[Rfam]
This 117-nucleotide sequence from Durio zibethinus belongs to the Rfam family "U5 spliceosomal RNA". The family's consensus secondary structure is taken from published work. For this family Rfam cites "The uRNA database" (Zwieb, Nucleic Acids Res, 1997). The source organism's lineage runs through Eukaryota, Streptophytina, Spermatophyta, Gunneridae and Durio. Rfam's curators write: U5 RNA is a component of both types of known spliceosome. A search with the family's covariance model found it, with a score of 59 bits.
RNA sequence: CGCAGCCGCAAUACCAGCAAAGGGAAUUGUUCUUUCGCCUUUUACAAAAGAAUUCCGUGUGGUCGUUGCAAACAGCGGCAAGCACCUGUUUUUGGAGGGCUCCUUAGCUUAGGGCCU
Numbered sequence: 001c002g003c004a005g006c007c008g009c010a011a012u013a014c015c016a017g018c019a020a021a022g023g024g025a026a027u028u029g030u031u032c033u034u035u036c037g038c039c040u041u042u043u044a045c046a047a048a049a050g051a052a053u054u055c056c057g058u059g060u061g062g063u064c065g066u067u068g069c070a071a072a073c074a075g076c077g078g079c080a081a082g083c084a085c086c087u088g089u090u091u092u093u094g095g096a097g098g099g100c101u102c103c104u105u106a107g108c109u110u111a112g113g114g115c116c117u
Stems, first nucleotide, its partner, number of pairs: 003078001005076002009068004015062001017060003029053007096117001098116005